[Rfam]
RNA: Mammalian CPEB3 ribozyme
RNA sequence: AGAGGGGGGGCCACAGCAGAAGCGCUCACAGCAUAGCCCUGCCAGAUUCCAGUGGAUCUGCAAAUUUUGCU
Numbered sequence: 001a002g003a004g005g006g007g008g009g010g011c012c013a014c015a016g017c018a019g020a021a022g023c024g025c026u027c028a029c030a031g032c033a034u035a036g037c038c039c040u041g042c043c044a045g046a047u048u049c050c051a052g053u054g055g056a057u058c059u060g061c062a063a064a065u066u067u068u069g070c071u
Stems, first nucleotide, its partner, number of pairs: 008039004015071007022034001024032001043060007